[Rfam]
RNA: RNase MRP
Nucleotides: 244
Stems, first nucleotide, its partner, number of pairs: 002244010014201006022055004060230003064227004078089004091104005107173003114167006123160004131153004141146001203214003
Number, partner (000 for none) and nucleotide at each position: 001000c002244a003243c004242a005241c006240c007239g008238c009237g010236g011235a012000c013000g014201a015200a016199g017198u018197g019196a020000g021000c022055g023054g024053g025052u026000c027000a028000g029000g030000a031000c032000c033000a034000c035000c036000a037000c038000c039000u040000g041000u042000g043000u044000g045000g046000g047000u048000u049000u050000g051000g052025a053024c054023c055022c056000a057000g058000g059000a060230a061229a062228g063000u064227c065226c066225c067224c068000g069000g070000g071000c072000c073000g074000u075000c076000a077000c078089u079088g080087u081086a082000g083000a084000g085000a086081u087080a088079c089078a090000g091104g092103c093102u094101u095100g096000g097000a098000a099000a100095c101094g102093a103092g104091u105000a106000a107173a108172c109171u110000c111000c112000c113000u114167g115166g116165g117164c118163g119162g120000g121000a122000g123160a124159g125158u126157c127000c128000g129000u130000c131153g132152g133151g134150c135000u136000g137000a138000g139000a140000c141146g142000c143000g144000u145000g146141u147000g148000g149000a150134g151133c152132c153131u154000u155000g156000u157126g158125a159124c160123u161000c162119c163118c164117g165116u166115c167114c168000g169000g170000a171109a172108g173107u174000a175000c176000c177000u178000u179000g180000g181000c182000c183000g184000a185000a186000a187000a188000a189000c190000a191000g192000u193000u194000a195000u196019u197018c198017a199016c200015u201014u202000g203214g204213u205212c206000c207000a208000c209000u210000g211000a212205g213204a214203c215000u216000a217000a218000c219000a220000g221000a222000a223000c224067g225066g226065g227064g228062c229061u230060u231000a232000u233000g234000a235011u236010c237009c238008g239007c240006g241005g242004u243003g244002u